[Rfam]
The record is a 75-nucleotide RNA from Ureibacillus manganicus, which matches "Group II catalytic intron D1-D4-1" in Rfam.
RNA sequence: CAAGUCUGCCAGUGAUGAUAGGCUGAAUUGUAAGAAGUCAGCAGAGGUCAUAGUAGUUUCUACGAAACGAAGGAC
Numbered sequence: 001c002a003a004g005u006c007u008g009c010c011a012g013u014g015a016u017g018a019u020a021g022g023c024u025g026a027a028u029u030g031u032a033a034g035a036a037g038u039c040a041g042c043a044g045a046g047g048u049c050a051u052a053g054u055a056g057u058u059u060c061u062a063c064g065a066a067a068c069g070a071a072g073g074a075c
Stems, first nucleotide, its partner, number of pairs: 001025002004023005010017002038045002047075003056068005
Background: Group II introns are found in rRNA, tRNA and mRNA of organelles in fungi, plants and protists, and also in mRNA in bacteria. The source organism's lineage runs through Bacteria, Bacillati, Caryophanales, Ureibacillus and Ureibacillus manganicus. The base pairs follow the family's consensus structure.